[Rfam]
The record is a 132-nucleotide sequence from Tinamus guttatus, which matches "Small nucleolar RNA SNORA3/SNORA45 family" in Rfam.
The family's consensus secondary structure was predicted with RNAalifold.
NCBI's taxonomy places the organism under Eukaryota, Metazoa, Gnathostomata, Tinamidae, Tinamus.
Clan: SNORA3 clan.
Rfam 15.1 lists 2,080 matches to the family in 639 species.
On this family, see Huttenhofer et al., EMBO J 2001: "RNomics: an experimental approach that identifies 201 candidates for novel, small, non-messenger RNAs in mouse".
From the family's description: The members of this family belong to the H/ACA class of snoRNAs which are thought to guide the sites of modification of uridines to pseudouridines. This family includes mouse snoMBI-28 and human homologues ACA3 (SNORA3) and ACA3-2 (SNORA45).

RNA sequence: AUCGAGACUAGAGUCACAUCCUAACACAUUUAAUUGUCUUGGUGUGCUAUUGUUCUCGGACAGAAACAUCUGAUCACUGUUCACUGGCUAUGAUGCCUCAUAUCUCAGUCAGCCACCGAAUCAGGAACACUA
Numbered sequence: 001a002u003c004g005a006g007a008c009u010a011g012a013g014u015c016a017c018a019u020c021c022u023a024a025c026a027c028a029u030u031u032a033a034u035u036g037u038c039u040u041g042g043u044g045u046g047c048u049a050u051u052g053u054u055c056u057c058g059g060a061c062a063g064a065a066a067c068a069u070c071u072g073a074u075c076a077c078u079g080u081u082c083a084c085u086g087g088c089u090a091u092g093a094u095g096c097c098u099c100a101u102a103u104c105u106c107a108g109u110c111a112g113c114c115a116c117c118g119a120a121u122c123a124g125g126a127a128c129a130c131u132a
Stems, first nucleotide, its partner, number of pairs: 002059005007053002012048002015046006024037003070124005077118001084112004089107001092104003